[Rfam]
RNA sequence: UGGCGAAGGUCCCAGCAGGGAGGUGAGUGCUCUAUGAUUUGAGACUUCUCUAACGAUGAAACAAAAAUGCCUUCGCAAAUGAAUUUAGCCGAAUCGUAGGAUGCCCAAUUAGUCCAUUUUUGGAGCGUCUGGAACCCUCGGCAACAUCCAA
Numbered sequence: 001u002g003g004c005g006a007a008g009g010u011c012c013c014a015g016c017a018g019g020g021a022g023g024u025g026a027g028u029g030c031u032c033u034a035u036g037a038u039u040u041g042a043g044a045c046u047u048c049u050c051u052a053a054c055g056a057u058g059a060a061a062c063a064a065a066a067a068u069g070c071c072u073u074c075g076c077a078a079a080u081g082a083a084u085u086u087a088g089c090c091g092a093a094u095c096g097u098a099g100g101a102u103g104c105c106c107a108a109u110u111a112g113u114c115c116a117u118u119u120u121u122g123g124a125g126c127g128u129c130u131g132g133a134a135c136c137c138u139c140g141g142c143a144a145c146a147u148c149c150a151a
Stems, first nucleotide, its partner, number of pairs: 003076007011020003025050003030043003034040001088142005100129002103126002105123004

The record is a 151-nucleotide sequence, which matches "Small nucleolar RNA snoR145" in Rfam. It is one of the family's seed sequences. The family has 19 seed sequences and 286 matches in Rfam 15.1. On this family, see Chen and Wu, Nucleic Acids Res 2009: "Mining small RNA sequencing data: a new approach to identify small nucleolar RNAs in Arabidopsis". Pairs were carried over by alignment from the consensus structure, which was predicted with mfold. It is annotated as an H/ACA-box small nucleolar RNA.